[Rfam]
RNA sequence: CCACUCUGGAAAGCGAUCCGCUCGGAUCCGCCGAUGGUGAAAGCGCCGCACUCCGCGACGGCGCGAAUCUCUCAGGCUCCACGACAGAGGGGGA
Numbered sequence: 001c002c003a004c005u006c007u008g009g010a011a012a013g014c015g016a017u018c019c020g021c022u023c024g025g026a027u028c029c030g031c032c033g034a035u036g037g038u039g040a041a042a043g044c045g046c047c048g049c050a051c052u053c054c055g056c057g058a059c060g061g062c063g064c065g066a067a068u069c070u071c072u073c074a075g076g077c078u079c080c081a082c083g084a085c086a087g088a089g090g091g092g093g094a
Stems, first nucleotide, its partner, number of pairs: 001092002004089005015028004030077003033073002037071001039069001043064006
RNA: Glycine riboswitch aptamer